[Rfam]
RNA sequence: GCGGAGACAAAUGUUUCCGUUCACUCCUCACACCACAUUCCGCCCGCAAAUUCUGGGGCGGUU
Number, nucleotide and partner (000 for none) at each position: 001g020002c019003g018004g017005a016006g015007a014008c013009a000010a000011a000012u000013g008014u007015u006016u005017c004018c003019g002020u001021u000022c000023a000024c000025u000026c000027c000028u000029c000030a000031c000032a000033c000034c000035a000036c000037a000038u000039u000040c000041c060042g059043c058044c057045c056046g000047c000048a000049a000050a000051u000052u000053c000054u000055g000056g045057g044058g043059c042060g041061g000062u000063u000
RNA: Cyanobacterial functional RNA 1
Organism: Hyella patelloides